Description:
This 58-nucleotide RNA sequence from Bifidobacterium bohemicum belongs to the Rfam family "msiK RNA". The family's consensus secondary structure is taken from published work.
[Rfam]
RNA sequence: GUGAAACCCCCUUCACUCGGAUCGUUCGGCACGUACCUGCCGAUGAAAGGAUAAUUAU
Numbered sequence: 001g002u003g004a005a006a007c008c009c010c011c012u013u014c015a016c017u018c019g020g021a022u023c024g025u026u027c028g029g030c031a032c033g034u035a036c037c038u039g040c041c042g043a044u045g046a047a048a049g050g051a052u053a054a055u056u057a058u
Stems, first nucleotide, its partner, number of pairs: 009050002012047004026043006
It scores 58 bits against the family's covariance model.